[Rfam]
Nucleotides: 119
Base pairs, nucleotide, nucleotide: 001119002118003117004116005115006114007113008112013043016042017041018040022033023032024031030086044081045080046079047078049077050076051073052072053071054070055069056068057067058066092108093107094106095105096104097103
Number, partner (000 for none) and nucleotide at each position: 001119c002118u003117c004116u005115u006114a007113u008112u009000c010000c011000g012000a013043g014000c015000u016042g017041g018040u019000g020000g021000a022033g023032g024031g025000g026000u027000c028000a029000g030086g031024c032023c033022c034000u035000a036000u037000g038000a039000a040018a041017c042016c043013c044081g045080g046079c047078a048000a049077c050076c051073u052072g053071u054070a055069a056068u057067u058066a059000g060000c061000g062000u063000c064000a065000u066058u067057a068056a069055u070054u071053g072052c073051a074000a075000a076050g077049g078047u079046g080045c081044c082000c083000a084000a085000c086030c087000u088000g089000a090000g091000u092108c093107a094106a095105g096104g097103u098000c099000a100000a101000u102000u103097g104096c105095c106094u107093u108092g109000a110000u111000u112008g113007a114006u115005a116004a117003g118002a119001g
This 119-nucleotide RNA sequence from Psychrobacillus insolitus belongs to the Rfam family "SAM riboswitch aptamer (S box leader)". Lineage of the source: Bacteria > Bacillati > Bacillota > Bacilli > Psychrobacillus. It scores 66 bits against the family's covariance model.